[Rfam]
RNA sequence: AUUAGUCUUCAGGGCAGGGUGCAAGUCCCUACCGGUGGUAAAGCCCACGAGCCGCAAGGCAGAUUCGGUUAGAUUCCGAAGCCGACAGUAUAGUCUGGAUAAAGCGAAGACAAAG
Numbered sequence: 001a002u003u004a005g006u007c008u009u010c011a012g013g014g015c016a017g018g019g020u021g022c023a024a025g026u027c028c029c030u031a032c033c034g035g036u037g038g039u040a041a042a043g044c045c046c047a048c049g050a051g052c053c054g055c056a057a058g059g060c061a062g063a064u065u066c067g068g069u070u071a072g073a074u075u076c077c078g079a080a081g082c083c084g085a086c087a088g089u090a091u092a093g094u095c096u097g098g099a100u101a102a103a104g105c106g107a108a109g110a111c112a113a114a115g
Stems, first nucleotide, its partner, number of pairs: 003113001005111006017029003031094002033084002035048004043082002051060003064080005086097003

Record summary
FMN riboswitch aptamer (RFN element): a 115-nucleotide RNA sequence from Carnobacterium sp. 17-4. Rfam links the family to the GO term FMN binding. Rfam's curators write: The RFN element is a highly conserved domain that is found frequently in the 5'-untranslated regions of prokaryotic mRNAs that encode for flavin mononucleotide (FMN) biosynthesis and transport proteins. Lineage of the source: Bacteria > Bacillota > Bacilli > Lactobacillales > Carnobacterium.